RNA sequence: ACAUCUGUCAAGGGGGAGUAGCUUUAGCUGUUAAUCAGCUAAUUAUGAUCGUCACGACAUGAACACAGCGGUUCAUCGGUCAUAAUGGCAUUGUCAUAAUGCUUUGCAAGACCUUUGCCUUUUAUUAGGCAAAGGUCUUUUUAUGUUGAUUUCACUUGUUUUGGCAAAUGAUU
Numbered sequence: 001a002c003a004u005c006u007g008u009c010a011a012g013g014g015g016g017a018g019u020a021g022c023u024u025u026a027g028c029u030g031u032u033a034a035u036c037a038g039c040u041a042a043u044u045a046u047g048a049u050c051g052u053c054a055c056g057a058c059a060u061g062a063a064c065a066c067a068g069c070g071g072u073u074c075a076u077c078g079g080u081c082a083u084a085a086u087g088g089c090a091u092u093g094u095c096a097u098a099a100u101g102c103u104u105u106g107c108a109a110g111a112c113c114u115u116u117g118c119c120u121u122u123u124a125u126u127a128g129g130c131a132a133a134g135g136u137c138u139u140u141u142u143a144u145g146u147u148g149a150u151u152u153c154a155c156u157u158g159u160u161u162u163g164g165c166a167a168a169u170g171a172u173u
Stems, first nucleotide, its partner, number of pairs: 026040003042086010059076005087172001089170004